[Rfam]
Notes: Shown here is a 56-nucleotide RNA from Cognatiyoonia sediminum, a member of the family "COG3860 RNA". The source organism's lineage runs through Bacteria, Pseudomonadati, Rhodobacterales, Paracoccaceae and Cognatiyoonia.
RNA sequence: AGGUCGACAGGACACCUAGACGCUGCCAGCCCAUCAGGGCCACGCUAAACCUGUCA
Numbered sequence: 001a002g003g004u005c006g007a008c009a010g011g012a013c014a015c016c017u018a019g020a021c022g023c024u025g026c027c028a029g030c031c032c033a034u035c036a037g038g039g040c041c042a043c044g045c046u047a048a049a050c051c052u053g054u055c056a
Stems, first nucleotide, its partner, number of pairs: 001017004029040004
A search with the family's covariance model found it, with a score of 48 bits.